A member of the RNA family "tRNA" from Aureobasidium musti, 81 nucleotides long. Gene Ontology term of the family: triplet codon-amino acid adaptor activity.

[Rfam]
RNA sequence: GCCAUGGUGGUGCAGUGGUGAGCACACCUGUAAUGUCUCUGGUGUUCCAGGAGGUCGCGGGUUCAAAUCCCGCUCAUGGUC
Numbered sequence: 001g002c003c004a005u006g007g008u009g010g011u012g013c014a015g016u017g018g019u020g021a022g023c024a025c026a027c028c029u030g031u032a033a034u035g036u037c038u039c040u041g042g043u044g045u046u047c048c049a050g051g052a053g054g055u056c057g058c059g060g061g062u063u064c065a066a067a068u069c070c071c072g073c074u075c076a077u078g079g080u081c
Base pairs, nucleotide, nucleotide: 001080002079003078004077005076006075007074010025011024012023013022027051028050029049030048057073058072059071060070061069

Source information:
It is annotated as a transfer RNA. On this family, see Hou, Trends Biochem Sci 1993: "The tertiary structure of tRNA and the development of the genetic code".